[Rfam]
RNA sequence: GAAUCUGGCGGAGAUGGCAUUCCUCCCUAACCGCCGCUAGCACCCUAGCGGCUAAUGAUGCCUACAUGGUC
Numbered sequence: 001g002a003a004u005c006u007g008g009c010g011g012a013g014a015u016g017g018c019a020u021u022c023c024u025c026c027c028u029a030a031c032c033g034c035c036g037c038u039a040g041c042a043c044c045c046u047a048g049c050g051g052c053u054a055a056u057g058a059u060g061c062c063u064a065c066a067u068g069g070u071c
Stems, first nucleotide, its partner, number of pairs: 010026004016062006033052008
RNA: Fluoride riboswitch aptamer (crcB RNA motif)